[Rfam]
RNA sequence: UUGGAUAGAAAUCGAUCAGUCCCCCGCCGCAACGGUGGGGGGAGAAACCGCGACGCCGGCAGCGGUUUCGUCGGCAGCCAAGGCCGCCAGGUCUCGCCAUGAGGCCAAUGGGACAUAACAGUCAAC
Dot-bracket structure: ...................(((((((((.....)))))))))..(((((((..........)))))))....(((.((....)).))).((((((.....))))))....................